[Rfam]
RNA sequence: GUCGAGUGGGGUAACGCCUGCUUGUAACCCAAGUGGGGACAAUAAGGUGGUGGGACUUUGGGUUGGGUCACGGAGACGGGUUUAUGCGGCCAUUCUCUGGCCCGCCCGUUCCAAGCGUGGAGUUGAGUUAUGGGACUUGUGCGUAGGUACAGGCCUCGUAGCUCCUUGAGUGGAAGGCAAAGCGUGAGGCUGGAUUCACAGAGCAGCGAUAACUUCCCACUCUUCGCAGUGGAAGGAUAACGGACCGGUGCAAUUUGGAUCCAAUAUGGCUCCGUCACUCUUCCCUAAUCGGACUAAAGCCUUU
Numbered sequence: 001g002u003c004g005a006g007u008g009g010g011g012u013a014a015c016g017c018c019u020g021c022u023u024g025u026a027a028c029c030c031a032a033g034u035g036g037g038g039a040c041a042a043u044a045a046g047g048u049g050g051u052g053g054g055a056c057u058u059u060g061g062g063u064u065g066g067g068u069c070a071c072g073g074a075g076a077c078g079g080g081u082u083u084a085u086g087c088g089g090c091c092a093u094u095c096u097c098u099g100g101c102c103c104g105c106c107c108g109u110u111c112c113a114a115g116c117g118u119g120g121a122g123u124u125g126a127g128u129u130a131u132g133g134g135a136c137u138u139g140u141g142c143g144u145a146g147g148u149a150c151a152g153g154c155c156u157c158g159u160a161g162c163u164c165c166u167u168g169a170g171u172g173g174a175a176g177g178c179a180a181a182g183c184g185u186g187a188g189g190c191u192g193g194a195u196u197c198a199c200a201g202a203g204c205a206g207c208g209a210u211a212a213c214u215u216c217c218c219a220c221u222c223u224u225c226g227c228a229g230u231g232g233a234a235g236g237a238u239a240a241c242g243g244a245c246c247g248g249u250g251c252a253a254u255u256u257g258g259a260u261c262c263a264a265u266a267u268g269g270c271u272c273c274g275u276c277a278c279u280c281u282u283c284c285c286u287a288a289u290c291g292g293a294c295u296a297a298a299g300c301c302u303u304u
Stems, first nucleotide, its partner, number of pairs: 001040003004023007028037003044303005051296003056291001058288003061284002065280002068277001070275006077268001078262007089251001091250002097248004102243003106236002109234005115227003119223005125164010136153007165170001172217005181210001183208003190201003